Source information:
The family of this 71-nucleotide sequence from Dromaius novaehollandiae is "Small nucleolar RNA SNORD30". The pairing is the family consensus, mapped onto this sequence. The organism belongs to Dromaius, within Eukaryota. Rfam classes the family as a C/D-box small nucleolar RNA. On this family, see Tycowski et al., Nature 1996: "A mammalian gene with introns instead of exons generating stable RNA products".
[Rfam]
RNA sequence: GCCUGUGAUGAGUCAACUCUGGAAUCUCGUUCGGCUGAAGGCUGGUGUUGAGGACUCGGACUCUGACGCCC
Numbered sequence: 001g002c003c004u005g006u007g008a009u010g011a012g013u014c015a016a017c018u019c020u021g022g023a024a025u026c027u028c029g030u031u032c033g034g035c036u037g038a039a040g041g042c043u044g045g046u047g048u049u050g051a052g053g054a055c056u057c058g059g060a061c062u063c064u065g066a067c068g069c070c071c
Stems, first nucleotide, its partner, number of pairs: 025053005032047002035044001